[Rfam]
RNA sequence: AGCAGAAAAAGGCAUAACCAGCGAAAGCUGGUGACGCAAAGUCUCCGGUCUAAGAGCGCGAGCUUAAGAUAGCGGAACUACCUCA
Numbered sequence: 001a002g003c004a005g006a007a008a009a010a011g012g013c014a015u016a017a018c019c020a021g022c023g024a025a026a027g028c029u030g031g032u033g034a035c036g037c038a039a040a041g042u043c044u045c046c047g048g049u050c051u052a053a054g055a056g057c058g059c060g061a062g063c064u065u066a067a068g069a070u071a072g073c074g075g076a077a078c079u080a081c082c083u084c085a
Base pairs, nucleotide, nucleotide: 012037013036017032018031019030020029021028022027040079041078042077045075046074047073048070049069050068055064056063057062
Source information
A member of the RNA family "c-di-GMP-I riboswitch aptamer" from Ferrimonas lipolytica, 85 nucleotides long. The base pairs follow the family's consensus structure, which is taken from published work. A search with the family's covariance model found it, with a score of 73 bits. Taxonomically the source falls in Ferrimonas (Bacteria, Pseudomonadota, Gammaproteobacteria, Ferrimonadaceae).